[Rfam]
Description:
The record is a 78-nucleotide RNA sequence from Moschus moschiferus, which matches "Small nucleolar RNA R38" in Rfam. Lineage of the source: Eukaryota > Euteleostomi > Theria > Laurasiatheria > Moschus. About the family: snoR38 is a C/D box small nucleolar RNA conserved across yeast, human, Arabidopsis and rice. It is encoded in the intron of elongation factor-1 gamma in both pombe and cerevisiae. snoR38 guides the methylation of 2'-O-ribose sites in 28S rRNA. The base pairs follow the family's consensus structure, which was predicted with PFOLD.
RNA sequence: UUGAGCUGAGGAUGAUUUAAAGUUAUCCCUGUCUGAAAAGAUUUCUGUUGUGAGGAAGUCUAACUUGCUGAGGCUCAA
Numbered sequence: 001u002u003g004a005g006c007u008g009a010g011g012a013u014g015a016u017u018u019a020a021a022g023u024u025a026u027c028c029c030u031g032u033c034u035g036a037a038a039a040g041a042u043u044u045c046u047g048u049u050g051u052g053a054g055g056a057a058g059u060c061u062a063a064c065u066u067g068c069u070g071a072g073g074c075u076c077a078a
Stems, first nucleotide, its partner, number of pairs: 001078007